[Rfam]
RNA sequence: CACUGUGUUAAGCUUCGGUUAAGCUUUACAUGUCAUUACUGUGUGCAUCCAGUGAUCUGGAUUCUUACCGAGUGGCUGGGCCACUCCGUUUGACGCCUCCCUGUUUAACUCCUGAGAGCCGCGUUUGCGGCUCUUUUUUU
Numbered sequence: 001c002a003c004u005g006u007g008u009u010a011a012g013c014u015u016c017g018g019u020u021a022a023g024c025u026u027u028a029c030a031u032g033u034c035a036u037u038a039c040u041g042u043g044u045g046c047a048u049c050c051a052g053u054g055a056u057c058u059g060g061a062u063u064c065u066u067a068c069c070g071a072g073u074g075g076c077u078g079g080g081c082c083a084c085u086c087c088g089u090u091u092g093a094c095g096c097c098u099c100c101c102u103g104u105u106u107a108a109c110u111c112c113u114g115a116g117a118g119c120c121g122c123g124u125u126u127g128c129g130g131c132u133c134u135u136u137u138u139u140u
Stems, first nucleotide, its partner, number of pairs: 001043003005014001020035001022033001025030001047062004070086006092105004114135009
Dot-bracket structure: (((.(........).....(.(..(....)..).).....)))...((((........)))).......((((((.....)))))).....((((......))))........(((((((((....))))))))).....
The family of this 140-nucleotide RNA sequence from Neoaquamicrobium microcysteis is "Alphaproteobacterial sRNA BjrC1505". The match comes from Rfam's covariance-model search (74 bits). By type it is a small RNA.